[Rfam]
RNA sequence: AUCUAGCCCUGAUGGAAGCGAUAUCCCGCGCUUUUUCUGCGCGGAAUUUAGCGGACAGCGGGACAAUUG
Numbered sequence: 001a002u003c004u005a006g007c008c009c010u011g012a013u014g015g016a017a018g019c020g021a022u023a024u025c026c027c028g029c030g031c032u033u034u035u036u037c038u039g040c041g042c043g044g045a046a047u048u049u050a051g052c053g054g055a056c057a058g059c060g061g062g063a064c065a066a067u068u069g
Stems, first nucleotide, its partner, number of pairs: 009061003013057002018052002023047001026044006
This 69-nucleotide RNA from Flavobacterium geliluteum belongs to the Rfam family "Flavo-1 RNA". By type it is a small RNA. NCBI's taxonomy places the organism under Bacteria, Flavobacteriia, Flavobacteriales, Flavobacteriaceae, Flavobacterium.